[Rfam]
RNA sequence: CCUAUGGAGUGUUAGACAAACGAUAGUAGCCAACUACCCAACGGGUAGGGCGAGGUCGGACACGUUGAAAUAGGAA
Numbered sequence: 001c002c003u004a005u006g007g008a009g010u011g012u013u014a015g016a017c018a019a020a021c022g023a024u025a026g027u028a029g030c031c032a033a034c035u036a037c038c039c040a041a042c043g044g045g046u047a048g049g050g051c052g053a054g055g056u057c058g059g060a061c062a063c064g065u066u067g068a069a070a071u072a073g074g075a076a
Stems, first nucleotide, its partner, number of pairs: 001074005009063005021058003029051003034048006
RAGATH-18 RNA: a 76-nucleotide sequence from Halolactibacillus alkaliphilus.
From the family's description: Actinobacteria, Firmicutes, Fusobacteria, Thermotogae (1 example).
By type it is a small RNA.